[Rfam]
RNA sequence: ACAAGGCAAGAUGUUGGCAUAGCUGAACAUAAUGAUGGUUAGGCUCAUAAUUCAGAGCUUAAUCAAUUUGCAAAAGGUUUCAGCCGUGCCACAUUAGGCCAUUUC
Numbered sequence: 001a002c003a004a005g006g007c008a009a010g011a012u013g014u015u016g017g018c019a020u021a022g023c024u025g026a027a028c029a030u031a032a033u034g035a036u037g038g039u040u041a042g043g044c045u046c047a048u049a050a051u052u053c054a055g056a057g058c059u060u061a062a063u064c065a066a067u068u069u070g071c072a073a074a075a076g077g078u079u080u081c082a083g084c085c086g087u088g089c090c091a092c093a094u095u096a097g098g099c100c101a102u103u104u105c
Stems, first nucleotide, its partner, number of pairs: 005100003011094004016090003022084005
Dot-bracket structure: ....(((...((((.(((...(((((.....................................................)))))...)))))))...))).....
This 105-nucleotide RNA from Acanthocheilonema viteae belongs to the Rfam family "mir-72 microRNA precursor family". Its Rfam clan is "mir-31 microRNA precursor family". The match comes from Rfam's covariance-model search (62 bits). The organism belongs to Acanthocheilonema, within Eukaryota. The family's consensus secondary structure was predicted with RNAalifold.